The record is a 68-nucleotide RNA sequence from Drosophila pseudoobscura, which matches "mir-2 microRNA precursor family" in Rfam. NCBI's taxonomy places the organism under Eukaryota, Schizophora, Drosophila, Sophophora, Drosophila pseudoobscura.
[Rfam]
Nucleotides: 068
Stems, first nucleotide, its partner, number of pairs: 006061007014052008024044003
Number, partner (000 for none) and nucleotide at each position: 001000u002000a003000a004000c005000c006061c007060a008059u009058c010057a011056a012055a013000c014052g015051g016050u017049u018048g019047u020046g021045a022000a023000a024044u025043g026042u027000u028000g029000c030000a031000u032000u033000u034000a035000u036000c037000a038000a039000a040000u041000c042026a043025u044024a045021u046020c047019a048018c049017a050016g051015c052014c053000a054000u055012u056011u057010u058009g059008a060007u061006g062000a063000g064000u065000u066000u067000c068000g
On this family, see Lee and Ambros, Science 2001: "An extensive class of small RNAs in Caenorhabditis elegans". Rfam's curators put it in the seed alignment. The family has 56 seed sequences and 918 matches in Rfam 15.1.